Rfam assigns this 131-nucleotide sequence from Castor canadensis to the family "Small nucleolar RNA SNORA38". Rfam links the family to the GO terms RNA processing, nucleolus and Cajal body. ACA38 is a member of the H/ACA class of snoRNA that guide the sites of modification of uridines to pseudouridines.
[Rfam]
RNA sequence: CCCUCCUACCAAGGCUUGUCUUUGGUUUGCUGUCUUUGGAUACAUAAGAAUUGGAGGCAAAGAAAUGUGGAUUUGGAGAAAUCUGGGGCCAGCUUGCUCCCCGCAGGCUCAAGAUCAACCAUGCCACACAG
Numbered sequence: 001c002c003c004u005c006c007u008a009c010c011a012a013g014g015c016u017u018g019u020c021u022u023u024g025g026u027u028u029g030c031u032g033u034c035u036u037u038g039g040a041u042a043c044a045u046a047a048g049a050a051u052u053g054g055a056g057g058c059a060a061a062g063a064a065a066u067g068u069g070g071a072u073u074u075g076g077a078g079a080a081a082u083c084u085g086g087g088g089c090c091a092g093c094u095u096g097c098u099c100c101c102c103g104c105a106g107g108c109u110c111a112a113g114a115u116c117a118a119c120c121a122u123g124c125c126a127c128a129c130a131g
Stems, first nucleotide, its partner, number of pairs: 002057005017042005024030001069124001071122001073121001091109007
The family's RNA type in Rfam is H/ACA-box small nucleolar RNA.